[Rfam]
RNA: ASpks TB sRNA
Organism: Kitasatospora kifunensis
RNA sequence: CUUCACCGAGCCGAGCAGCAACGGCCGCUCGGCGGGCCGCUGCUGACCGUAGGUGGCCAGCAGCGCCUGCGCCUC
Dot-bracket structure: ..............((.......))......((....((...(((.(((....))).)))...))...)).....
Numbered sequence: 001c002u003u004c005a006c007c008g009a010g011c012c013g014a015g016c017a018g019c020a021a022c023g024g025c026c027g028c029u030c031g032g033c034g035g036g037c038c039g040c041u042g043c044u045g046a047c048c049g050u051a052g053g054u055g056g057c058c059a060g061c062a063g064c065g066c067c068u069g070c071g072c073c074u075c
Stems, first nucleotide, its partner, number of pairs: 015025002032070002038065002043060003047056003